Rfam assigns this 365-nucleotide RNA sequence from Microbacterium halimionae to the family "Bacterial RNase P class A". It scores 287 bits against the family's covariance model. Ribonuclease P (RNase P) is a ubiquitous endoribonuclease, found in archaea, bacteria and eukarya as well as chloroplasts and mitochondria. The family's RNA type in Rfam is ribozyme. Its family is annotated with tRNA processing, dimeric ribonuclease P complex and ribonuclease P activity in the Gene Ontology. NCBI's taxonomy places the organism under Bacteria, Actinomycetota, Micrococcales, Microbacteriaceae, Microbacterium.
Nucleotides: 365
Base pairs, nucleotide, nucleotide: 001361002360003359004358005357006356007355008354009353010352011350012314013313014312015311016310017309018308020045021044023042024041025040026039028037050348051347052346054345055344056343057342058341059220060219061218062217066251067250068249069248071216072215073214074213075212076090077089078088079087080086091105092103093102094101095100106211107210111209112208113205114204115203128151129150130147131146132145133144134143135142136141159177160176161175162174163173164172178200179198180197181196182195183194184193185192186191224271225270226269227268233262234261235260236259237258238257245253246252278297279296280295281294282293283292284291285290
Number, partner (000 for none) and nucleotide at each position: 001361u002360g003359g004358g005357u006356c007355g008354g009353c010352u011350g012314g013313a014312u015311g016310g017309u018308c019000a020045c021044g022000u023042c024041g025040c026039g027000u028037c029000g030000g031000u032000u033000c034000g035000c036000c037028g038000c039026c040025g041024c042023g043000c044021c045020g046000a047000g048000g049000a050348a051347c052346g053000u054345c055344c056343g057342g058341g059220c060219u061218c062217c063000a064000c065000a066251g067250g068249g069248c070000a071216g072215g073214a074213c075212g076090g077089u078088g079087g080086g081000u082000a083000a084000c085000a086080c087079c088078c089077a090076c091105c092103c093102g094101g095100a096000g097000a098000a099000a100095u101094c102093c103092g104000c105091g106211a107210g108000a109000c110000a111209g112208u113205g114204c115203c116000a117000c118000a119000g120000a121000g122000a123000g124000c125000a126000g127000a128151c129150c130147g131146c132145c133144g134143g135142g136141g137000c138000u139000u140000g141136c142135c143134c144133c145132g146131g147130u148000a149000a150129g151128g152000g153000u154000g155000a156000a157000a158000g159177g160176g161175u162174g163173g164172u165000g166000u167000a168000a169000g170000a171000g172164a173163c174162c175161a176160c177159c178200g179198g180197g181196g182195u183194c184193g185192u186191g187000g188000u189000g190000a191186c192185a193184c194183g195182a196181c197180c198179u199000g200178c201000a202000a203115g204114g205113u206000a207000a208112a209111c210107c211106u212075c213074g214073u215072c216071c217062g218061g219060a220059g221000c222000a223000a224271g225270g226269u227268c228000a229000g230000a231000c232000a233262g234261g235260g236259g237258a238257u239000g240000u241000u242000g243000a244000c245253g246252c247000g248069g249068c250067u251066c252246g253245c254000c255000g256000a257238g258237u259236c260235c261234c262233c263000g264000g265000g266000u267000a268227g269226g270225c271224c272000g273000c274000u275000a276000g277000a278297g279296c280295g281294g282293c283292a284291c285290g286000g287000c288000a289000a290285c291284g292283u293282g294281u295280c296279g297278c298000c299000g300000a301000g302000a303000g304000a305000g306000a307000u308018g309017a310016c311015c312014g313013u314012c315000g316000a317000a318000g319000g320000a321000g322000u323000u324000c325000a326000c327000a328000c329000u330000c331000c332000g333000g334000a335000a336000c337000a338000g339000a340000a341058c342057c343056c344055g345054g346052c347051g348050u349000a350011c351000a352010g353009g354008c355007u356006g357005g358004c359003c360002c361001a362000u363000u364000c365000g